Small nucleolar RNA snoR104: a 119-nucleotide RNA sequence from Morus notabilis. Rfam classes the family as an H/ACA-box small nucleolar RNA. It scores 97 bits against the family's covariance model. Rfam links the family to the GO terms RNA processing and nucleolus. Taxonomically the source falls in Morus (Eukaryota, Streptophyta, Mesangiospermae, fabids). The literature on the family includes a 2002 paper in Curr Biol by Marker et al., "Experimental RNomics: identification of 140 candidates for small non-messenger RNAs in the plant Arabidopsis thaliana".

[Rfam]
RNA sequence: GGGGAGCAUCCAAUAAUUGAGAUGUUAUCUGAUACGACCUUCCUACAGAGAAGCUCUGCUUUUUUCCUACUUGUAGUGCUUGAGCAAGUUCUACGAGUCUCAGAUUGCCAGAGACAUGA
Numbered sequence: 001g002g003g004g005a006g007c008a009u010c011c012a013a014u015a016a017u018u019g020a021g022a023u024g025u026u027a028u029c030u031g032a033u034a035c036g037a038c039c040u041u042c043c044u045a046c047a048g049a050g051a052a053g054c055u056c057u058g059c060u061u062u063u064u065u066c067c068u069a070c071u072u073g074u075a076g077u078g079c080u081u082g083a084g085c086a087a088g089u090u091c092u093a094c095g096a097g098u099c100u101c102a103g104a105u106u107g108c109c110a111g112a113g114a115c116a117u118g119a
Stems, first nucleotide, its partner, number of pairs: 001030003005026006055112003069098008078089003
Dot-bracket structure: (((.((((((..........)))))).)))........................(((...........((((((((.(((......))).))))))))...........))).......